[Rfam]
RNA sequence: CCUCUGGAAAGCCCAGCGCCUGCGAAGGAACUGGCACCGACGGAGUAAGGAAGGCCCCGCUUUCCGAAUCUCUCAGGUCUCGGGACAGAGG
Numbered sequence: 001c002c003u004c005u006g007g008a009a010a011g012c013c014c015a016g017c018g019c020c021u022g023c024g025a026a027g028g029a030a031c032u033g034g035c036a037c038c039g040a041c042g043g044a045g046u047a048a049g050g051a052a053g054g055c056c057c058c059g060c061u062u063u064c065c066g067a068a069u070c071u072c073u074c075a076g077g078u079c080u081c082g083g084g085a086c087a088g089a090g091g
Base pairs, nucleotide, nucleotide: 001091002090003089004088005087006086013034014033015032016031036078037077038076039074040073043072044071045070049065050064051063052062053061

The family of this 91-nucleotide RNA sequence from Muricoccus roseus is "Glycine riboswitch aptamer". It scores 52 bits against the family's covariance model. Its Rfam clan is "Glycine riboswitch clan". The source organism's lineage runs through Bacteria, Pseudomonadati, Alphaproteobacteria, Roseomonadaceae and Muricoccus.